[Rfam]
RNA: Lysine riboswitch aptamer
Organism: Bifidobacterium aemilianum
RNA sequence: AGUCACAGAAGAGGUUGCUGGAGCUAUCAGUAGCUGGGCGGAGAUGCGGCGGCAUCGGUGAAGGCCAGUCAAAGGAGCUUUGGCCGAAAUGACCAGGUCCUGCCGGGGUUGGUUGUUGGGUCCGGAUUCAACAAAUCCGGAACUGUCGCAGGGGUUCCUGCGGAGCGCUAUGGACGGU
Numbered sequence: 001a002g003u004c005a006c007a008g009a010a011g012a013g014g015u016u017g018c019u020g021g022a023g024c025u026a027u028c029a030g031u032a033g034c035u036g037g038g039c040g041g042a043g044a045u046g047c048g049g050c051g052g053c054a055u056c057g058g059u060g061a062a063g064g065c066c067a068g069u070c071a072a073a074g075g076a077g078c079u080u081u082g083g084c085c086g087a088a089a090u091g092a093c094c095a096g097g098u099c100c101u102g103c104c105g106g107g108g109u110u111g112g113u114u115g116u117u118g119g120g121u122c123c124g125g126a127u128u129c130a131a132c133a134a135a136u137c138c139g140g141a142a143c144u145g146u147c148g149c150a151g152g153g154g155u156u157c158c159u160g161c162g163g164a165g166c167g168c169u170a171u172g173g174a175c176g177g178u
Stems, first nucleotide, its partner, number of pairs: 006173001008171001010169002017084009033069005039063001088117009098107002118144002121141008146163007